[Rfam]
RNA sequence: GGAUAGCACUGUUUUGCUAUCCCCGACCAAUAACACAAUGACACGUAGAAAAAUUAUCCUACAUGUCAUUGCGUUAUUCACAGGGGAUAGCAAAAUGCGUUAUCC
Numbered sequence: 001g002g003a004u005a006g007c008a009c010u011g012u013u014u015u016g017c018u019a020u021c022c023c024c025g026a027c028c029a030a031u032a033a034c035a036c037a038a039u040g041a042c043a044c045g046u047a048g049a050a051a052a053a054u055u056a057u058c059c060u061a062c063a064u065g066u067c068a069u070u071g072c073g074u075u076a077u078u079c080a081c082a083g084g085g086g087a088u089a090g091c092a093a094a095a096u097g098c099g100u101u102a103u104c105c
Stems, first nucleotide, its partner, number of pairs: 002104004012095009022085003029078006036071008045062004050057001